[Rfam]
The record is a 63-nucleotide RNA sequence from Skermanella aerolata, which matches "terC RNA" in Rfam. It is annotated as a cis-regulatory element.

RNA sequence: UCCCGGGUCCGGGCCCCUCUGGCGGUUGCUCAGUCGACGCUUCCGCGAUGUCGGACUCCUUGU
Numbered sequence: 001u002c003c004c005g006g007g008u009c010c011g012g013g014c015c016c017c018u019c020u021g022g023c024g025g026u027u028g029c030u031c032a033g034u035c036g037a038c039g040c041u042u043c044c045g046c047g048a049u050g051u052c053g054g055a056c057u058c059c060u061u062g063u
Stems, first nucleotide, its partner, number of pairs: 006057007022046004028040002